[Rfam]
Shown here is a 75-nucleotide sequence from Pristionchus pacificus, a member of the family "mir-84 microRNA precursor family". On this family, see Lau et al., Science 2001: "An abundant class of tiny RNAs with probable regulatory roles in Caenorhabditis elegans". It is one of the family's seed sequences. The family's consensus secondary structure was predicted with RNAalifold. Rfam links the family to the GO terms miRNA-mediated post-transcriptional gene silencing and RISC complex.
RNA sequence: CCCUCAGUUGAGGUAGUUAAGAAUAAGUGAUGACCAUCAGAAGUAUUCACGUAUUCUCCCUGCCUCCACUGUGUC
Numbered sequence: 001c002c003c004u005c006a007g008u009u010g011a012g013g014u015a016g017u018u019a020a021g022a023a024u025a026a027g028u029g030a031u032g033a034c035c036a037u038c039a040g041a042a043g044u045a046u047u048c049a050c051g052u053a054u055u056c057u058c059c060c061u062g063c064c065u066c067c068a069c070u071g072u073g074u075c
Stems, first nucleotide, its partner, number of pairs: 003073001005071001010066007022055004028049003
Dot-bracket structure: ..(.(....(((((((.....((((..(((................)))..))))....)))))))....).)..